[Rfam]
RNA: Plastid-psbA-3 3UTR RNA
Organism: Ipomoea triloba
RNA sequence: AAGGGAGCAAUAACCACUUUCUUGUUCUAAACAAGAUGGGGUAUUGCUCCUUUAUUU
Numbered sequence: 001a002a003g004g005g006a007g008c009a010a011u012a013a014c015c016a017c018u019u020u021c022u023u024g025u026u027c028u029a030a031a032c033a034a035g036a037u038g039g040g041g042u043a044u045u046g047c048u049c050c051u052u053u054a055u056u057u
Stems, first nucleotide, its partner, number of pairs: 001053012014041001020036005